The record is a 162-nucleotide sequence from Araneus ventricosus, which matches "U1 spliceosomal RNA" in Rfam. It is annotated as a spliceosomal small nuclear RNA.
[Rfam]
RNA sequence: AUACUUACCUGGCACUGGGGAUGCCUUGAUCACGAAGGAGGCUCCCCCGAACAGAGACCUUCCAUUGCACUUCGGAUGGUUGACGUUCGCCACAUCCGCAAAUCGCGGUUGCUUGGGGUGCACAAUUUUUGGUAGCUGGGACUGCGUUCGCGCUGUCCCUGU
Numbered sequence: 001a002u003a004c005u006u007a008c009c010u011g012g013c014a015c016u017g018g019g020g021a022u023g024c025c026u027u028g029a030u031c032a033c034g035a036a037g038g039a040g041g042c043u044c045c046c047c048c049g050a051a052c053a054g055a056g057a058c059c060u061u062c063c064a065u066u067g068c069a070c071u072u073c074g075g076a077u078g079g080u081u082g083a084c085g086u087u088c089g090c091c092a093c094a095u096c097c098g099c100a101a102a103u104c105g106c107g108g109u110u111g112c113u114u115g116g117g118g119u120g121c122a123c124a125a126u127u128u129u130u131g132g133u134a135g136c137u138g139g140g141a142c143u144g145c146g147u148u149c150g151c152g153c154u155g156u157c158c159c160u161g162u
Base pairs, nucleotide, nucleotide: 012121013120014119015118017047018046019045020044021043023042024041025040026039027038049088050087051086052085054084056081057080058079061076062075063074090116091115092114094110097107098106136161138159139158140157141156144153145152146151